[Rfam]
RNA sequence: AUUUGCAAGCGUUGCCUGCCUGAGACAGCUGGUGCGCCCUGAGCGCUUAAUGUUAUCGCCAGCCGAGGCAAGGGGAGUGGGUAGAAGAUAUAUACCGAGCGUAUAGUGGUAAGCCCCUGCCUGUCUCAAGCAGGUAGGGGCUUACUUUAUUGUAA
Numbered sequence: 001a002u003u004u005g006c007a008a009g010c011g012u013u014g015c016c017u018g019c020c021u022g023a024g025a026c027a028g029c030u031g032g033u034g035c036g037c038c039c040u041g042a043g044c045g046c047u048u049a050a051u052g053u054u055a056u057c058g059c060c061a062g063c064c065g066a067g068g069c070a071a072g073g074g075g076a077g078u079g080g081g082u083a084g085a086a087g088a089u090a091u092a093u094a095c096c097g098a099g100c101g102u103a104u105a106g107u108g109g110u111a112a113g114c115c116c117c118u119g120c121c122u123g124u125c126u127c128a129a130g131c132a133g134g135u136a137g138g139g140g141c142u143u144a145c146u147u148u149a150u151u152g153u154a155a
Stems, first nucleotide, its partner, number of pairs: 028063006034046003114140010
RNA: Ribosomal protein L10 leader
Organism: Thermobaculum terrenum